[Rfam]
RNA sequence: UUACUGAACGGAUUAACUAUUGAACUGUUCUGUCAAACAAUUUGUUCUUUGACAGAGAGUGACAAAACAGUUCAAUAGCUAAUCCGUCCAGUAAC
Numbered sequence: 001u002u003a004c005u006g007a008a009c010g011g012a013u014u015a016a017c018u019a020u021u022g023a024a025c026u027g028u029u030c031u032g033u034c035a036a037a038c039a040a041u042u043u044g045u046u047c048u049u050u051g052a053c054a055g056a057g058a059g060u061g062a063c064a065a066a067a068c069a070g071u072u073c074a075a076u077a078g079c080u081a082a083u084c085c086g087u088c089c090a091g092u093a094a095c
Stems, first nucleotide, its partner, number of pairs: 001094006011084005017078012029056007036046004